[Rfam]
RNA sequence: UUGACAGCGUCGCUUUUUUGACCUAAAUUUCUCGGUGAAGGGUGAGGGAGGCGAACCUCCCUCCUGCGUACUCACUGUUAAUAUGCUGGGCAAGCGAUGAUUAACAGGAUCAGCAGCAUGAUGACGUAUCUCAUCAUCGUCCCUUUCCUUUUU
Numbered sequence: 001u002u003g004a005c006a007g008c009g010u011c012g013c014u015u016u017u018u019u020g021a022c023c024u025a026a027a028u029u030u031c032u033c034g035g036u037g038a039a040g041g042g043u044g045a046g047g048g049a050g051g052c053g054a055a056c057c058u059c060c061c062u063c064c065u066g067c068g069u070a071c072u073c074a075c076u077g078u079u080a081a082u083a084u085g086c087u088g089g090g091c092a093a094g095c096g097a098u099g100a101u102u103a104a105c106a107g108g109a110u111c112a113g114c115a116g117c118a119u120g121a122u123g124a125c126g127u128a129u130c131u132c133a134u135c136a137u138c139g140u141c142c143c144u145u146u147c148c149u150u151u152u153u
Base pairs, nucleotide, nucleotide: 034147035146038145039144040143041142042141046061047060048059064116065115066114067113117139118137119136120135121134122133123132
Dot-bracket structure: .................................((..(((((...(((..........)))..((((.............................................))))(((((((........)))))).).)))))))......

The record is a 153-nucleotide RNA sequence from Salmonella enterica, which matches "Short Intergenic Abundant RNA" in Rfam. The literature on the family includes a 2001 paper in Genes Dev by Wassarman et al., "Identification of novel small RNAs using comparative genomics and microarrays". The organism belongs to Salmonella enterica subsp. enterica, within Bacteria. Its family is annotated with mRNA binding in the Gene Ontology. About the family: This family contains multiple ncRNA from E. coli that were identified in a large scale screen of E. coli, were they were called candidates 43,55 and 61. These RNAs have also been identified by other groups and called QUAD RNAs.